[Rfam]
RNA sequence: GGUAUUCCUUAUCUAUCUAAUACGUUGAGUUAUCUGGAACCUGUCCCAUUAAACUUUCGUGAGAAAGCUUAAUAAGACAGGUUCUGCGUUUAGUUGCCGCGCACAUUUUUGCG
Numbered sequence: 001g002g003u004a005u006u007c008c009u010u011a012u013c014u015a016u017c018u019a020a021u022a023c024g025u026u027g028a029g030u031u032a033u034c035u036g037g038a039a040c041c042u043g044u045c046c047c048a049u050u051a052a053a054c055u056u057u058c059g060u061g062a063g064a065a066a067g068c069u070u071a072a073u074a075a076g077a078c079a080g081g082u083u084c085u086g087c088g089u090u091u092a093g094u095u096g097c098c099g100c101g102c103a104c105a106u107u108u109u110u111g112c113g
Base pairs, nucleotide, nucleotide: 001098002097003096004095022089023088024087025086036085037084038083039082040081041080042079043078044077045076048073049072050071051070052069054067055066056065057064058063
RNA: tp2
Organism: Salmonella enterica